[Rfam]
RNA sequence: AGGGCGUGCCUUUCAGGCAUCCUCUCCUAAAAACUUUUCAGGCUGGUCUUCGGACCGGCCUUUUUUUUGUUCUUGC
Numbered sequence: 001a002g003g004g005c006g007u008g009c010c011u012u013u014c015a016g017g018c019a020u021c022c023u024c025u026c027c028u029a030a031a032a033a034c035u036u037u038u039c040a041g042g043c044u045g046g047u048c049u050u051c052g053g054a055c056c057g058g059c060c061u062u063u064u065u066u067u068u069g070u071u072c073u074u075g076c
Base pairs, nucleotide, nucleotide: 008018009017010016011015040061041060042059043058044057045056046055047054048053